[Rfam]
RNA sequence: UAUUAAGUUUUCUAGGGUUCCGCAUCAUCUACAUGAUGGCCUGGUCCGAGGGGAAACGCGCAAAUAAUUAUUUGCGUCACACGGAAGGACAAAAUCCUGGGAGAA
Numbered sequence: 001u002a003u004u005a006a007g008u009u010u011u012c013u014a015g016g017g018u019u020c021c022g023c024a025u026c027a028u029c030u031a032c033a034u035g036a037u038g039g040c041c042u043g044g045u046c047c048g049a050g051g052g053g054a055a056a057c058g059c060g061c062a063a064a065u066a067a068u069u070a071u072u073u074g075c076g077u078c079a080c081a082c083g084g085a086a087g088g089a090c091a092a093a094a095u096c097c098u099g100g101g102a103g104a105a
Stems, first nucleotide, its partner, number of pairs: 007057006015047002020044002022041001023038006058078001059076006080100001082103001086098003
A member of the RNA family "Guanidine-I riboswitch aptamer" from Vagococcus zengguangii, 105 nucleotides long. A search with the family's covariance model found it, with a score of 87 bits. The organism belongs to Vagococcus, within Bacteria. Rfam links the family to the GO term regulation of gene expression. The base pairs follow the family's consensus structure.